[Rfam]
RNA sequence: GGCCCUACACCGCCCAUGGGCAGGGGCGGGGGAACCACCGGGACUCAUACCCCAGGGGUGAAGCCAUCACACAUGGCCGGGCACCUCUCGCCCGAACCCGUCAGCUAACCCCGCAGGCGCCGAGAGGAGCAGCA
Numbered sequence: 001g002g003c004c005c006u007a008c009a010c011c012g013c014c015c016a017u018g019g020g021c022a023g024g025g026g027c028g029g030g031g032g033a034a035c036c037a038c039c040g041g042g043a044c045u046c047a048u049a050c051c052c053c054a055g056g057g058g059u060g061a062a063g064c065c066a067u068c069a070c071a072c073a074u075g076g077c078c079g080g081g082c083a084c085c086u087c088u089c090g091c092c093c094g095a096a097c098c099c100g101u102c103a104g105c106u107a108a109c110c111c112c113g114c115a116g117g118c119g120c121c122g123a124g125a126g127g128a129g130c131a132g133c134a
Stems, first nucleotide, its partner, number of pairs: 002118003008025001010023001026114006036055001056099003064076004079093004